RNA: UnaL2 LINE 3' element
Organism: Synaphobranchus kaupii
RNA sequence: UUUAUGCACUACUUGUAAGUCGCUUUGGAUAAAAGUGUCUGCUAAAUGACUAAAU
Numbered sequence: 001u002u003u004a005u006g007c008a009c010u011a012c013u014u015g016u017a018a019g020u021c022g023c024u025u026u027g028g029a030u031a032a033a034a035g036u037g038u039c040u041g042c043u044a045a046a047u048g049a050c051u052a053a054a055u
Base pairs, nucleotide, nucleotide: 013044015042016041017040021037022036023035024034025033026032